[Rfam]
RNA sequence: GGCCUGUGAUGUAUGAAAUUUGUCCGUACCAUCUGAGAUUCUCUGAUCGAAACAACAAAUUUUGAAUCUGAGGCCU
Numbered sequence: 001g002g003c004c005u006g007u008g009a010u011g012u013a014u015g016a017a018a019u020u021u022g023u024c025c026g027u028a029c030c031a032u033c034u035g036a037g038a039u040u041c042u043c044u045g046a047u048c049g050a051a052a053c054a055a056c057a058a059a060u061u062u063u064g065a066a067u068c069u070g071a072g073g074c075c076u
Base pairs, nucleotide, nucleotide: 001075002074003073004072
The family of this 76-nucleotide RNA from Cicer arietinum is "small nucleolar RNA snoR117". A reference for the family is Chen and Wu (2009), "Mining small RNA sequencing data: a new approach to identify small nucleolar RNAs in Arabidopsis", Nucleic Acids Res. Rfam 15.1 lists 419 matches to the family in 211 species. The base pairs follow the family's consensus structure, which was predicted with RNAalifold. Its family is annotated with nucleolus and RNA processing in the Gene Ontology.